Shown here is a 250-nucleotide sequence, a member of the family "FuFi-1 RNA".

RNA sequence: GCGCAAUGCGUUAGGGCAUCUCAGUGCAGAACCAAAACUGCCAAAGUGAGCGGCGCACCAUAGAAGCACAGGGCCGUUUGUGUGGCACAGCGUCAGGCAAGCGUGUGUACUGGCACCGCCCAGGUCAAAAGGGGCACGUCACCAUAAGGCAAGCAAGCCAAUUACGUACUUAUGGGGCCUGUGUCUGCAAUGCGUUCUGGUAAACAAAUUUGGGAGGAGGGUGUCCGCAACGGCCUGCGGGCAUCCUUUU
Numbered sequence: 001g002c003g004c005a006a007u008g009c010g011u012u013a014g015g016g017c018a019u020c021u022c023a024g025u026g027c028a029g030a031a032c033c034a035a036a037a038c039u040g041c042c043a044a045a046g047u048g049a050g051c052g053g054c055g056c057a058c059c060a061u062a063g064a065a066g067c068a069c070a071g072g073g074c075c076g077u078u079u080g081u082g083u084g085g086c087a088c089a090g091c092g093u094c095a096g097g098c099a100a101g102c103g104u105g106u107g108u109a110c111u112g113g114c115a116c117c118g119c120c121c122a123g124g125u126c127a128a129a130a131g132g133g134g135c136a137c138g139u140c141a142c143c144a145u146a147a148g149g150c151a152a153g154c155a156a157g158c159c160a161a162u163u164a165c166g167u168a169c170u171u172a173u174g175g176g177g178c179c180u181g182u183g184u185c186u187g188c189a190a191u192g193c194g195u196u197c198u199g200g201u202a203a204a205c206a207a208a209u210u211u212g213g214g215a216g217g218a219g220g221g222u223g224u225c226c227g228c229a230a231c232g233g234c235c236u237g238c239g240g241g242c243a244u245c246c247u248u249u250u
Base pairs, nucleotide, nucleotide: 002052003051004050026041027040028039029038032213033212034211035210036209053195054194055193056192057191066083067082068081069080070079071078072235073234074233075232076231077230084185085184086183087182088181089180090178217248218247219246220245221244222243223242224241225240226239227238228237229236
It is annotated as a small RNA.